[Rfam]
RNA sequence: GCAAAAGGUAGGGCUUAGCUCACUUGUGAACAGUGUGUUUUUUUAAGACAUGUUCACAGUGGCUAAGUUCCGCCACUUGG
Numbered sequence: 001g002c003a004a005a006a007g008g009u010a011g012g013g014c015u016u017a018g019c020u021c022a023c024u025u026g027u028g029a030a031c032a033g034u035g036u037g038u039u040u041u042u043u044u045a046a047g048a049c050a051u052g053u054u055c056a057c058a059g060u061g062g063c064u065a066a067g068u069u070c071c072g073c074c075a076c077u078u079g080g
Stems, first nucleotide, its partner, number of pairs: 011070010026057007
Shown here is an 80-nucleotide RNA sequence from Thamnophis sirtalis, a member of the family "mir-27 microRNA precursor family". NCBI's taxonomy places the organism under Eukaryota, Eumetazoa, Squamata, Serpentes, Thamnophis. A reference for the family is Yao et al. (2008), "MicroRNA profile of Marek's disease virus-transformed T-cell line MSB-1: predominance of virus-encoded microRNAs", J Virol. Rfam links the family to the GO terms miRNA-mediated post-transcriptional gene silencing and RISC complex.